[Rfam]
RNA sequence: UAUCUUUGCAGCCUUGUUAGUAAAAGUUACUGGCAAAUACAUAAAAAUCAUUUAAAGAAUAUUGGCAUG
Numbered sequence: 001u002a003u004c005u006u007u008g009c010a011g012c013c014u015u016g017u018u019a020g021u022a023a024a025a026g027u028u029a030c031u032g033g034c035a036a037a038u039a040c041a042u043a044a045a046a047a048u049c050a051u052u053u054a055a056a057g058a059a060u061a062u063u064g065g066c067a068u069g
Stems, first nucleotide, its partner, number of pairs: 014036008

S15-Flavobacteria ribosomal protein leader: a 69-nucleotide RNA sequence from Robertkochia marina. It is annotated as a cis-regulatory leader.